RNA: mir-981 microRNA precursor family
RNA sequence: CCGCACAUAAUUCGGGUUUCGAGACGAUGAAACCGUAUGUACAAUUGGUUCGUUGUCGACGAAACCUGCAAAAUGUGCGG
Numbered sequence: 001c002c003g004c005a006c007a008u009a010a011u012u013c014g015g016g017u018u019u020c021g022a023g024a025c026g027a028u029g030a031a032a033c034c035g036u037a038u039g040u041a042c043a044a045u046u047g048g049u050u051c052g053u054u055g056u057c058g059a060c061g062a063a064a065c066c067u068g069c070a071a072a073a074u075g076u077g078c079g080g
Base pairs, nucleotide, nucleotide: 001080002079003078004077005076006075013068014067015066016065017064018063019062020061021060031050032049033048034047